[Rfam]
Nucleotides: 075
Base pairs, nucleotide, nucleotide: 001075002074003073004072006071007068008067009066010065011064012063013062014061015060016059019056021054022053023052024051025050026049027048
Number, partner (000 for none) and nucleotide at each position: 001075c002074c003073g004072u005000g006071g007068u008067g009066c010065a011064u012063u013062g014061u015060a016059g017000u018000u019056g020000c021054a022053u023052u024051g025050c026049a027048u028000u029000g030000a031000a032000a033000g034000c035000a036000g037000a038000c039000a040000u041000u042000g043000u044000a045000a046000u047000u048027g049026u050025g051024c052023a053022a054021u055000g056019c057000u058000u059016c060015u061014g062013c063012a064011g065010u066009g067008c068007a069000a070000g071006c072004a073003u074002g075001g
About this RNA
Rfam assigns this 75-nucleotide RNA sequence from Strigamia maritima to the family "mir-33 microRNA precursor family". Pairs were carried over by alignment from the consensus structure, which was predicted with PFOLD. Gene Ontology terms of the family: gene silencing by miRNA and RISC complex. A reference for the family is Li et al. (2009), "Direct sequencing and expression analysis of a large number of miRNAs in Aedes aegypti and a multi-species survey of novel mosquito miRNAs", BMC Genomics.